[Rfam]
The record is a 304-nucleotide RNA sequence from Carpinus fangiana, which matches "Plant signal recognition particle RNA" in Rfam. Taxonomically the source falls in Carpinus (Eukaryota, Streptophytina, Mesangiospermae, Fagales). On this family, see Rosenblad et al., RNA Biol 2009: "Kinship in the SRP RNA family". The family's RNA type in Rfam is non-coding RNA gene.
RNA sequence: ACCGAGCUUAGUAACGUGAGCUUGUAACCUAAGUAGGGGUAUCAUUGUGAUGGAAUUUUAGCCCAGCCGACCUGGUCGGAUUCUUGAGGCCGCUUACUGGCCCGCCCGAUCUAAGCCCAAGAGCUGGACUUCGUGACUUGGGCGAAGGCCCUGGGUCACGUGGUUCCUAGAGAGGAGGGCUCUGCGUGAGGUUGGUUACAGAUCAGCGACUACUUCCCGCUCCUGGCAGUGGAAGGAUUACGGGUAGGUGCCUCCCGAAUCCAACACGGCCUGUUGGGUUGACCCUAGUAGGACCAUCACUUUU
Numbered sequence: 001a002c003c004g005a006g007c008u009u010a011g012u013a014a015c016g017u018g019a020g021c022u023u024g025u026a027a028c029c030u031a032a033g034u035a036g037g038g039g040u041a042u043c044a045u046u047g048u049g050a051u052g053g054a055a056u057u058u059u060a061g062c063c064c065a066g067c068c069g070a071c072c073u074g075g076u077c078g079g080a081u082u083c084u085u086g087a088g089g090c091c092g093c094u095u096a097c098u099g100g101c102c103c104g105c106c107c108g109a110u111c112u113a114a115g116c117c118c119a120a121g122a123g124c125u126g127g128a129c130u131u132c133g134u135g136a137c138u139u140g141g142g143c144g145a146a147g148g149c150c151c152u153g154g155g156u157c158a159c160g161u162g163g164u165u166c167c168u169a170g171a172g173a174g175g176a177g178g179g180c181u182c183u184g185c186g187u188g189a190g191g192u193u194g195g196u197u198a199c200a201g202a203u204c205a206g207c208g209a210c211u212a213c214u215u216c217c218c219g220c221u222c223c224u225g226g227c228a229g230u231g232g233a234a235g236g237a238u239u240a241c242g243g244g245u246a247g248g249u250g251c252c253u254c255c256c257g258a259a260u261c262c263a264a265c266a267c268g269g270c271c272u273g274u275u276g277g278g279u280u281g282a283c284c285c286u287a288g289u290a291g292g293a294c295c296a297u298c299a300c301u302u303u304u
Base pairs, nucleotide, nucleotide: 001040002039003038004023005022006021007020008019009018010017028037029036030035044303047300048299049298050297051296052295053294056291057290058288059287060286061284064281065280066279068277070275072273074271075270076269077268078262079261080260081259082258083257087253088252089251091250092249097248098247100245101244102243103242104241106236107235110233111232112231113230115227116226117225119224121222122221123220124219126166127165128164129163130162132160133159134158135157136156137155138154139153140152141150142149143148167172174217175216176215177214178213185208186207187206192201193200194199